[Rfam]
Nucleotides: 128
Stems, first nucleotide, its partner, number of pairs: 008078005013028004029049008050073007096126004101122005108116001110114001
Number, partner (000 for none) and nucleotide at each position: 001000a002000a003000a004000a005000a006000g007000g008078g009077u010076g011075u012074c013028u014027g015026c016025c017000u018000g019000c020000u021000a022000u023000a024000u025016g026015g027014c028013a029049c030048a031047c032046g033045g034044u035043c036042u037000c038000u039000u040000u041000g042036g043035g044034g045033c046032c047031g048030u049029g050073c051072a052071g053070a054069a055068u056067c057000g058000c059000u060000a061000g062000c063000a064000a065000g066000a067056g068055a069054u070053u071052c072051u073050g074012g075011a076010c077009a078008c079000a080000u081000a082000a083000u084000u085000u086000u087000u088000g089000g090000a091000a092000a093000c094000u095000g096126g097125a098124g099123c100000u101122g102121c103120c104119g105118a106000u107000u108116g109000c110114u111000u112000u113000a114110a115000c116108u117000u118105u119104u120103g121102g122101c123099g124098c125097u126096c127000c128000u